[Rfam]
RNA sequence: GUGGUACUCAAACUGUGGGGGCACUUUCUGUUCCUGAAUGAAGUGCCGCCAGGUUUUGAGCGUUAC
Numbered sequence: 001g002u003g004g005u006a007c008u009c010a011a012a013c014u015g016u017g018g019g020g021g022c023a024c025u026u027u028c029u030g031u032u033c034c035u036g037a038a039u040g041a042a043g044u045g046c047c048g049c050c051a052g053g054u055u056u057u058g059a060g061c062g063u064u065a066c
Base pairs, nucleotide, nucleotide: 004063005062007060008059009058010057011056012055016051017050018049020047021046022045023044024043025042026041027040